[Rfam]
RNA sequence: AGAUAGCAUUGUAUUGCUAUUCUUGGCCAAUAACACAAUGAUAUGUGGAAAAGUUAUCCUACGUGUCAUUGUGUUAUUGGCCUGAUAUAGCAAAAAGUGUUAUCUCC
Dot-bracket structure: .((.(......(.(((((((..(.((((((((((((((((((((((((.(......).)))))))))))))))))))))))).)..))))))).).......).)).
RNA: MIR6274 microRNA precursor family